[Rfam]
Glycine riboswitch aptamer: an 88-nucleotide sequence from Tessaracoccus bendigoensis.
RNA sequence: CCCGUCGACGCGGGAGAACCGACCCCGUGCCGGUGCCGAAGGAGCAACCGCCCCGGAAACUCUCAGGCCCCAGGACCGCAUCGACCGG
Numbered sequence: 001c002c003c004g005u006c007g008a009c010g011c012g013g014g015a016g017a018a019c020c021g022a023c024c025c026c027g028u029g030c031c032g033g034u035g036c037c038g039a040a041g042g043a044g045c046a047a048c049c050g051c052c053c054c055g056g057a058a059a060c061u062c063u064c065a066g067g068c069c070c071c072a073g074g075a076c077c078g079c080a081u082c083g084a085c086c087g088g
Base pairs, nucleotide, nucleotide: 006083007082008081010079011078012077013076019033020032021031035068036067037066038064039063042062043061044060048056049055

Overview:
The pairing is the family consensus, mapped onto this sequence.